[Rfam]
RNA sequence: UUUAUAUUAUCGCUGAAUUCCCGUCAGGGAAGCGGGGGACCCAAUAUUUUGGGGUGAAUCAACUUCAGAAUUCAGAAGUCAGAAUUCAGAAGUCAGAAUUUAAGAAGGAAUUCGCCAAGGCGAAUUCUAAUAAAAAUCUGACAUCCGACAUCUGACGACCGACUUCCGAAUUGUAGGGCUAAAUCUUUCGGCCCGAAUCCGUCAGCUAACCUCGUAAGCGUUGAAAGGAAGGGUG
Number, nucleotide and partner (000 for none) at each position: 001u000002u000003u000004a000005u000006a000007u000008u000009a000010u000011c220012g219013c218014u217015g000016a000017a000018u031019u030020c029021c000022c000023g000024u000025c000026a000027g000028g000029g020030a019031a018032g215033c214034g213035g212036g211037g210038g000039a000040c000041c000042c051043a050044a000045u000046a000047u000048u000049u000050u043051g042052g200053g199054g198055u000056g000057a000058a000059u000060c173061a172062a171063c000064u000065u000066c000067a000068g000069a000070a000071u000072u000073c000074a000075g000076a000077a000078g000079u000080c000081a000082g000083a000084a000085u000086u000087c000088a000089g000090a000091a000092g000093u000094c000095a000096g000097a000098a000099u000100u000101u000102a000103a000104g000105a000106a000107g000108g000109a000110a000111u000112u000113c000114g000115c000116c000117a000118a000119g000120g000121c000122g000123a000124a000125u000126u000127c000128u000129a000130a000131u000132a000133a000134a000135a000136a000137u000138c000139u000140g000141a000142c000143a000144u000145c000146c000147g000148a000149c000150a000151u000152c000153u000154g000155a000156c000157g000158a000159c000160c000161g000162a000163c000164u000165u000166c000167c000168g000169a000170a000171u062172u061173g060174u000175a000176g194177g193178g192179c191180u000181a000182a000183a000184u000185c000186u000187u000188u000189c000190g000191g179192c178193c177194c176195g000196a000197a000198u054199c053200c052201g000202u000203c000204a000205g000206c000207u000208a000209a000210c037211c036212u035213c034214g033215u032216a000217a014218g013219c012220g011221u000222u000223g000224a000225a000226a000227g000228g000229a000230a000231g000232g000233g000234u000235g000
This 235-nucleotide RNA from Pelotomaculum propionicicum belongs to the Rfam family "c-di-AMP riboswitch aptamer (ydaO/yuaA leader)".
The pairing is the family consensus, mapped onto this sequence.
Lineage of the source: Bacteria > Bacillati > Clostridia > Desulfotomaculaceae > Pelotomaculum.